Shown here is an 83-nucleotide sequence, a member of the family "c-di-GMP-II-GAG riboswitch aptamer". On this family, see Weinberg et al., Proc Natl Acad Sci U S A 2017: "Bioinformatic analysis of riboswitch structures uncovers variant classes with altered ligand specificity".

RNA sequence: UGACAGGCGGGAGGCUGUGACGCGCGGCCCCAACCCCGGCCGCCGGGACCGCGCCGAGCCACUGGCGAGACCGACCCGUGCAA
Numbered sequence: 001u002g003a004c005a006g007g008c009g010g011g012a013g014g015c016u017g018u019g020a021c022g023c024g025c026g027g028c029c030c031c032a033a034c035c036c037c038g039g040c041c042g043c044c045g046g047g048a049c050c051g052c053g054c055c056g057a058g059c060c061a062c063u064g065g066c067g068a069g070a071c072c073g074a075c076c077c078g079u080g081c082a083a
Stems, first nucleotide, its partner, number of pairs: 007079005013060003022054006029047001038072002041067004
Dot-bracket structure: ......(((((.(((......((((((.(........[[.[[[[..).))))))...)))...]]]]...]]..)))))....

Description:
The family's consensus secondary structure is taken from published work.